[Rfam]
RNA: SAM-I/IV (S-adenosyl methionine) riboswitch aptamer
RNA sequence: AAGUGGUAUCAAGAGCAGAGUUAAGUCUCUCUCCAACCUGCCAACUCCGGCAAGGUGGAACAAAUGAUGCGGUUGUUCAACAAUUAAAGGAGAUAAA
Numbered sequence: 001a002a003g004u005g006g007u008a009u010c011a012a013g014a015g016c017a018g019a020g021u022u023a024a025g026u027c028u029c030u031c032u033c034c035a036a037c038c039u040g041c042c043a044a045c046u047c048c049g050g051c052a053a054g055g056u057g058g059a060a061c062a063a064a065u066g067a068u069g070c071g072g073u074u075g076u077u078c079a080a081c082a083a084u085u086a087a088a089g090g091a092g093a094u095a096a097a
Stems, first nucleotide, its partner, number of pairs: 006070005015031001017030004032059003037055003040051003045092004072081003